[Rfam]
RNA sequence: UUGCACUGAUGACCACUUAGGACACCUUUGGAUGAACCAUGAAAACAAACCGUUGAACCUGAGCAGC
Number, nucleotide and partner (000 for none) at each position: 001u066002u065003g064004c063005a000006c000007u000008g000009a000010u000011g000012a000013c000014c000015a000016c000017u000018u000019a000020g000021g000022a000023c000024a000025c000026c000027u000028u000029u000030g000031g000032a000033u000034g000035a000036a000037c000038c000039a000040u000041g000042a000043a000044a000045a000046c000047a000048a000049a000050c000051c000052g000053u000054u000055g000056a000057a000058c000059c000060u000061g000062a000063g004064c003065a002066g001067c000
This 67-nucleotide RNA from Takifugu rubripes belongs to the Rfam family "Small nucleolar RNA SNORD58". Clan: SNORD58 clan. By type it is a C/D-box small nucleolar RNA. A reference for the family is Galardi et al. (2002), "Purified box C/D snoRNPs are able to reproduce site-specific 2'-O-methylation of target RNA in vitro", Mol Cell Biol. It is one of the family's seed sequences.